Annotation: This 159-nucleotide sequence from Pelodiscus sinensis belongs to the Rfam family "Interferon gamma 5' UTR regulatory element". The family has 5 seed sequences and 135 matches in Rfam 15.1. About the family: This family represents a pseudoknot containing stem-loop structure found in the 5' UTR of interferon (IFN) gamma mRNA. This structure is thought to be involved in translational regulation and the pseudoknot has been found to activate PKR which is known to be a translational inhibitor. A reference for the family is Ben-Asouli et al. (2002), "Human interferon-gamma mRNA autoregulates its translation through a pseudoknot that activates the interferon-inducible protein kinase PKR", Cell. Rfam classes the family as a cis-regulatory element.
RNA sequence: CAUGCUUCGUUGCAUAAGGGCCAUUUUUGCGCAAGAGGCUUUUGCGCAAAAAGGAGCUGUCUAUAUAGCUCCUUUUUGCGCAAAAGCCUCUUGCGCAAAAAUGGCCCUUAUGCAACGAAGCAUGCAAAUUAUGCUCUGCUAAUCUGCACUUCAUUUGCA
Number, nucleotide and partner (000 for none) at each position: 001c000002a000003u000004g000005c000006u000007u000008c000009g000010u000011u000012g060013c059014a058015u110016a109017a108018g107019g106020g000021c104022c103023a102024u000025u000026u000027u000028u097029g096030c095031g094032c093033a000034a091035g090036a089037g088038g087039c086040u085041u084042u083043u082044g081045c080046g079047c078048a077049a000050a075051a074052a073053g072054g000055a000056g000057c000058u014059g013060u012061c000062u000063a000064u000065a000066u000067a000068g000069c000070u000071c000072c053073u052074u051075u050076u000077u048078g047079c046080g045081c044082a043083a042084a041085a040086g039087c038088c037089u036090c035091u034092u000093g032094c031095g030096c029097a028098a000099a000100a000101a000102u023103g022104g021105c000106c019107c018108u017109u016110a015111u159112g158113c157114a156115a154116c000117g152118a000119a000120g134121c133122a132123u131124g130125c000126a000127a000128a000129u000130u124131a123132u122133g121134c120135u000136c000137u148138g147139c146140u000141a000142a000143u000144c000145u000146g139147c138148a137149c000150u000151u000152c117153a000154u115155u000156u114157g113158c112159a111